[Rfam]
RNA sequence: CAUGCCAGAAAGGCCGUAGCCCACAUCAACUCCGUGUGGAAGGACCUUCUGGAAGACA
Numbered sequence: 001c002a003u004g005c006c007a008g009a010a011a012g013g014c015c016g017u018a019g020c021c022c023a024c025a026u027c028a029a030c031u032c033c034g035u036g037u038g039g040a041a042g043g044a045c046c047u048u049c050u051g052g053a054a055g056a057c058a
Base pairs, nucleotide, nucleotide: 005052006051007050008049009048010047012045014043015042021039022038023037024036025035026034